Description
The record is an 86-nucleotide sequence from Drosophila pseudoobscura, which matches "mir-981 microRNA precursor family" in Rfam. It is one of the family's seed sequences. The organism belongs to Sophophora, within Eukaryota.
[Rfam]
RNA sequence: CCACAUUGAAAUCGGGUUUCGUUAACAGCGGGCUGUUAUGAAUAAAUCAACAAGUUCGUUGUCGACGAAACCUGCAUGCUGUGUGG
Numbered sequence: 001c002c003a004c005a006u007u008g009a010a011a012u013c014g015g016g017u018u019u020c021g022u023u024a025a026c027a028g029c030g031g032g033c034u035g036u037u038a039u040g041a042a043u044a045a046a047u048c049a050a051c052a053a054g055u056u057c058g059u060u061g062u063c064g065a066c067g068a069a070a071c072c073u074g075c076a077u078g079c080u081g082u083g084u085g086g
Stems, first nucleotide, its partner, number of pairs: 001086006013074009030057005